[Rfam]
RNA sequence: GCCCUGUGGUUACUGGAUGCUGUUGUGUAAGUGCAGCUCUCCAGUGGAUAUAAAGGGCUACAGCAACUCUGUGAUUUAUGCAUGGGGGCUGUUUCUCCUCCGCGGCCUCCAUAGCCCGGUCACUGAUACAUGA
Dot-bracket structure: (.((..((.((((((((.(((((.........)))))..)))))))).)).....)))..........(.((((((...((((((.((((((.........)))))).)))).))..)))))).)........
RNA: Small nucleolar RNA SNORA84